[Rfam]
Description:
This 69-nucleotide sequence from Streptomyces sp. wa22 belongs to the Rfam family "ASpks TB sRNA". Rfam 15.1 lists 9,052 matches to the family in 683 species. The family's RNA type in Rfam is antisense RNA.
RNA sequence: CUUCACCGAGCCCAGCCACAGCGGUUCCUCGCGGUCCUGGCCGUAGGUGGCCAGGAGCGCCUGGGCCUC
Numbered sequence: 001c002u003u004c005a006c007c008g009a010g011c012c013c014a015g016c017c018a019c020a021g022c023g024g025u026u027c028c029u030c031g032c033g034g035u036c037c038u039g040g041c042c043g044u045a046g047g048u049g050g051c052c053a054g055g056a057g058c059g060c061c062u063g064g065g066c067c068u069c
Stems, first nucleotide, its partner, number of pairs: 014026004028065003032059002037054003041050003
A search with the family's covariance model found it, with a score of 80 bits.